Rfam assigns this 86-nucleotide sequence from Solanum tuberosum to the family "MIR8024 microRNA precursor family". The source organism's lineage runs through Eukaryota, Euphyllophyta, Pentapetalae, Solaneae and Solanum. It scores 67 bits against the family's covariance model. The base pairs follow the family's consensus structure, which was predicted with RNAalifold.
RNA sequence: UUGAAGAAAUUGAAGACCGCAACUUGCAGGCUUGAAGAAUUUGAAGACUUCAACUUGUAGACUUAAAGAAUUUGAAGACUUUAACU
Numbered sequence: 001u002u003g004a005a006g007a008a009a010u011u012g013a014a015g016a017c018c019g020c021a022a023c024u025u026g027c028a029g030g031c032u033u034g035a036a037g038a039a040u041u042u043g044a045a046g047a048c049u050u051c052a053a054c055u056u057g058u059a060g061a062c063u064u065a066a067a068g069a070a071u072u073u074g075a076a077g078a079c080u081u082u083a084a085c086u
Stems, first nucleotide, its partner, number of pairs: 001084006010075005017068001021064001025059004032053006
The family has 2 seed sequences and 661 matches in Rfam 15.1.